The record is a 96-nucleotide RNA from Ictidomys tridecemlineatus, which matches "Y RNA" in Rfam.
It scores 49 bits against the family's covariance model.
Rfam classes the family as a non-coding RNA gene.
The organism belongs to Ictidomys, within Eukaryota.
Y RNAs are components of the Ro ribonucleoprotein particle (Ro RNP), in association with Ro60 and La proteins. The Y RNAs and Ro60 and La proteins are well conserved, but the function of the Ro RNP is not known. In humans the RNA component can be one of four small RNAs -- hY1, hY3, hY4 and hY5.
The family's consensus secondary structure is taken from published work.
[Rfam]
RNA sequence: GGCUGAUUCCAUGGUAGUGGGUUAUCAGAACUUAUUAACAUUAGUGUUACUAAAGUUGAUAUACAACUCCCCACUGCUAAAUUUGACUGGCUUAAA
Numbered sequence: 001g002g003c004u005g006a007u008u009c010c011a012u013g014g015u016a017g018u019g020g021g022u023u024a025u026c027a028g029a030a031c032u033u034a035u036u037a038a039c040a041u042u043a044g045u046g047u048u049a050c051u052a053a054a055g056u057u058g059a060u061a062u063a064c065a066a067c068u069c070c071c072c073a074c075u076g077c078u079a080a081a082u083u084u085g086a087c088u089g090g091c092u093u094a095a096a
Stems, first nucleotide, its partner, number of pairs: 001092005007086002011083001015079001016075006033061003037057002